[Rfam]
RNA sequence: CAAGCUGUAGGGAAUCAUGCGUCAAGUGUCUUUAGGAAGGGAAUGCACCUGAAGAACGAAAGCCUGGUCUGCGAUGUGAUUUCCGAUCCCGCUUU
Numbered sequence: 001c002a003a004g005c006u007g008u009a010g011g012g013a014a015u016c017a018u019g020c021g022u023c024a025a026g027u028g029u030c031u032u033u034a035g036g037a038a039g040g041g042a043a044u045g046c047a048c049c050u051g052a053a054g055a056a057c058g059a060a061a062g063c064c065u066g067g068u069c070u071g072c073g074a075u076g077u078g079a080u081u082u083c084c085g086a087u088c089c090c091g092c093u094u095u
Base pairs, nucleotide, nucleotide: 002094003093004092005091010084011083012082013081014080015079016078017077018076019075020073021072022071026057027056029055030054031053032052033051034050035049036048040089041088042087061070062069
Shown here is a 95-nucleotide sequence from Clostridiaceae bacterium JG1575, a member of the family "THF (Tetrahydrofolate) riboswitch aptamer". Its family is annotated with tetrahydrofolate metabolic process in the Gene Ontology. The match comes from Rfam's covariance-model search (52 bits). The family's consensus secondary structure is taken from published work.